[Rfam]
RNA: c-di-GMP-I riboswitch aptamer
Organism: Fusibacter sp. A1
RNA sequence: UUCUGUAAAUCGCAAAGCUGAUGAAAAUCAGUGUCGCAAAGCUAUAGGGUCUAAGGUUCAUAUGAACUAUGACAGCCAGUUUCCAGA
Numbered sequence: 001u002u003c004u005g006u007a008a009a010u011c012g013c014a015a016a017g018c019u020g021a022u023g024a025a026a027a028u029c030a031g032u033g034u035c036g037c038a039a040a041g042c043u044a045u046a047g048g049g050u051c052u053a054a055g056g057u058u059c060a061u062a063u064g065a066a067c068u069a070u071g072a073c074a075g076c077c078a079g080u081u082u083c084c085a086g087a
Stems, first nucleotide, its partner, number of pairs: 012037002017032006040081004047077002049073003056067004